[Rfam]
Background: Shown here is an 86-nucleotide sequence from Camarhynchus parvulus, a member of the family "mir-135 microRNA precursor family". Pairs were carried over by alignment from the consensus structure, which was predicted with PFOLD. The family has 88 seed sequences and 2,125 matches in Rfam 15.1. Its family is annotated with RISC complex and gene silencing by miRNA in the Gene Ontology. For this family Rfam cites "Identification of many microRNAs that copurify with polyribosomes in mammalian neurons" (Kim et al., Proc Natl Acad Sci U S A, 2004).
Nucleotides: 086
Stems, first nucleotide, its partner, number of pairs: 002085004008079016028060010
Number, partner (000 for none) and nucleotide at each position: 001000c002085c003084u004083c005082u006000g007000c008079u009078g010077u011076g012075g013074u014073c015072u016071a017070u018069g019068g020067c021066u022065u023064u024000u025000u026000a027000u028060u029059c030058c031057u032056a033055u034054g035053u036052g037051a038000u039000g040000c041000u042000u043000u044000c045000c046000c047000g048000a049000a050000c051037u052036c053035a054034u055033g056032u057031a058030g059029g060028g061000c062000g063000a064023a065022a066021a067020g068019c069018c070017a071016u072015g073014g074013g075012c076011u077010a078009c079008a080000c081000a082005g083004g084003g085002g086000a